[Rfam]
Overview: A member of the RNA family "Flavo-1 RNA" from Flavobacterium hercynium, 81 nucleotides long. The family's RNA type in Rfam is small RNA. A search with the family's covariance model found it, with a score of 69 bits.

RNA sequence: UCCUAGCCCCGAUGGGAGUGGAAAUCCUUUGACUUUUUGCUGCCAAAAAGACAAAGAUUGUAGCAGACAGCGGGAAAUAGC
Number, nucleotide and partner (000 for none) at each position: 001u000002c000003c000004u000005a000006g000007c000008c000009c073010c072011g071012a000013u069014g068015g000016g000017a000018g064019u063020g000021g000022a000023a059024a058025u057026c056027c000028u000029u054030u053031g052032a000033c050034u049035u048036u047037u046038u045039g044040c000041u000042g000043c000044c039045a038046a037047a036048a035049a034050g033051a000052c031053a030054a029055a000056g026057a025058u024059u023060g000061u000062a000063g019064c018065a000066g000067a000068c014069a013070g000071c011072g010073g009074g000075a000076a000077a000078u000079a000080g000081c000